[Rfam]
Nucleotides: 072
Stems, first nucleotide, its partner, number of pairs: 011040001014037001017072007024036003044061007
Number, partner (000 for none) and nucleotide at each position: 001000a002000u003000a004000a005000g006000u007000u008000u009000u010000a011040g012000u013000c014037c015000a016000u017072a018071g019070c020069a021068g022067a023066a024036g025035u026034g027000c028000u029000u030000a031000c032000a033000g034026c035025a036024u037014g038000a039000c040011c041000u042000g043000u044061c045060a046059g047058a048057u049056u050055c051000c052000a053000a054000u055050g056049a057048a058047u059046c060045u061044g062000c063000a064000a065000a066023u067022u068021u069020u070019g071018c072017u
This 72-nucleotide sequence from Alligator mississippiensis belongs to the Rfam family "Mammalian CPEB3 ribozyme". Gene Ontology term of the family: RNA nuclease activity. The mammalian CPEB3 ribozyme is a self cleaving RNA located in the second intron of the CPEB3 gene which belongs to a family of genes regulating messenger RNA polyadenylation.